Small nucleolar RNA SNORD24: an 81-nucleotide sequence from Cuscuta campestris.
Rfam links the family to the GO terms nucleolus and RNA processing.
Taxonomically the source falls in Cuscuta sect. Cleistogrammica (Eukaryota, asterids, Cuscuta, Cuscuta subgen. Grammica).
On this family, see Qu et al., Nucleic Acids Res 1995: "U24, a novel intron-encoded small nucleolar RNA with two 12 nt long, phylogenetically conserved complementarities to 28S rRNA".
The family's consensus secondary structure was predicted with PFOLD.
[Rfam]
RNA sequence: GGCCUGUGAUGUUAUAAGUAUUUGCUACUCUUGAUGGGAAAUCCUAUCUGAUGAUAUCUUACCACCAAGAUCUCUGAGGCC
Numbered sequence: 001g002g003c004c005u006g007u008g009a010u011g012u013u014a015u016a017a018g019u020a021u022u023u024g025c026u027a028c029u030c031u032u033g034a035u036g037g038g039a040a041a042u043c044c045u046a047u048c049u050g051a052u053g054a055u056a057u058c059u060u061a062c063c064a065c066c067a068a069g070a071u072c073u074c075u076g077a078g079g080c081c
Base pairs, nucleotide, nucleotide: 001081002080003079004078